[Rfam]
RNA sequence: GCACUCUGGUUUCCCUUCAGUACAUACGUACAAAUCUUUCGCCUUUUACUAAAGAUUUCCGUGGAGGGGAACAAUCAAUGAGUCUAUAGCUCAAUUUUUCACUGCCCUGUCUUGAACAGGGCU
Numbered sequence: 001g002c003a004c005u006c007u008g009g010u011u012u013c014c015c016u017u018c019a020g021u022a023c024a025u026a027c028g029u030a031c032a033a034a035u036c037u038u039u040c041g042c043c044u045u046u047u048a049c050u051a052a053a054g055a056u057u058u059c060c061g062u063g064g065a066g067g068g069g070a071a072c073a074a075u076c077a078a079u080g081a082g083u084c085u086a087u088a089g090c091u092c093a094a095u096u097u098u099u100c101a102c103u104g105c106c107c108u109g110u111c112u113u114g115a116a117c118a119g120g121g122c123u
Stems, first nucleotide, its partner, number of pairs: 003083004009072011032058008104122006
The record is a 123-nucleotide sequence from Branchiostoma lanceolatum, which matches "U5 spliceosomal RNA" in Rfam. Lineage of the source: Eukaryota > Metazoa > Bilateria > Deuterostomia > Branchiostoma. By type it is a spliceosomal small nuclear RNA. About the family: U5 RNA is a component of both types of known spliceosome. The precise function of this molecule is unknown, though it is known that the 5' loop is required for splice site selection and p220 binding, and that both the 3' stem-loop and the Sm site are important for Sm protein binding and cap methylation. A search with the family's covariance model found it, with a score of 98 bits. Its family is annotated with U5 snRNP and spliceosomal tri-snRNP complex assembly in the Gene Ontology. On this family, see Thomas et al., Nucleic Acids Res 1990: "The spliceosomal snRNAs of Caenorhabditis elegans".